[Rfam]
RNA sequence: CCCGCCACUACACCCGUCUGCUGGUGACUGAGUGUAAUCCAGUGGAGGCUCAGAGCGACCCGGCUUCAGGAAACAGAGCUGUUCACACUAAUGGACACCUCUGUGCCGAAAAGUCUGGAACAAGA
Numbered sequence: 001c002c003c004g005c006c007a008c009u010a011c012a013c014c015c016g017u018c019u020g021c022u023g024g025u026g027a028c029u030g031a032g033u034g035u036a037a038u039c040c041a042g043u044g045g046a047g048g049c050u051c052a053g054a055g056c057g058a059c060c061c062g063g064c065u066u067c068a069g070g071a072a073a074c075a076g077a078g079c080u081g082u083u084c085a086c087a088c089u090a091a092u093g094g095a096c097a098c099c100u101c102u103g104u105g106c107c108g109a110a111a112a113g114u115c116u117g118g119a120a121c122a123a124g125a
Stems, first nucleotide, its partner, number of pairs: 005045005018032002021026001060118004064113003069107002074103005082095003
Rfam assigns this 125-nucleotide sequence from Amphiprion percula to the family "Small nucleolar RNA SNORA65". The literature on the family includes a 2001 paper in EMBO J by Huttenhofer et al., "RNomics: an experimental approach that identifies 201 candidates for novel, small, non-messenger RNAs in mouse". About the family: U65 belongs to the H/ACA class of snoRNAs which are thought to guide the sites of modification of uridines to pseudouridines. The family is grouped with related families in Rfam's "SNORA65 clan". A search with the family's covariance model found it, with a score of 83 bits.